This 154-nucleotide RNA sequence from Microvirga brassicacearum belongs to the Rfam family "speF leader".
RNA sequence: CGUUGGCCCUCCAAAGGUCAACACCGAAGAGGCUUGUUUAUCAUUGCCGCGCGUGCGGACAGGGAAUUUCCCUCUCCAAACCAAGGCAGCAUCGUCGGGUGAAGAGCCCAUUGCACCCUCGUGUCUCCAUCGCACGAUCGCGCAAUGCCAUCUU
Numbered sequence: 001c002g003u004u005g006g007c008c009c010u011c012c013a014a015a016g017g018u019c020a021a022c023a024c025c026g027a028a029g030a031g032g033c034u035u036g037u038u039u040a041u042c043a044u045u046g047c048c049g050c051g052c053g054u055g056c057g058g059a060c061a062g063g064g065a066a067u068u069u070c071c072c073u074c075u076c077c078a079a080a081c082c083a084a085g086g087c088a089g090c091a092u093c094g095u096c097g098g099g100u101g102a103a104g105a106g107c108c109c110a111u112u113g114c115a116c117c118c119u120c121g122u123g124u125c126u127c128c129a130u131c132g133c134a135c136g137a138u139c140g141c142g143c144a145a146u147g148c149c150a151u152c153u154u
Stems, first nucleotide, its partner, number of pairs: 002022007031048003055135001057133001081089001097118005
About the family: This family is a putative regulatory RNA structure that is found upstream of the speF gene encoding ornithine decarboxylase in Agrobacterium tumefaciens and other alpha-proteobacteria.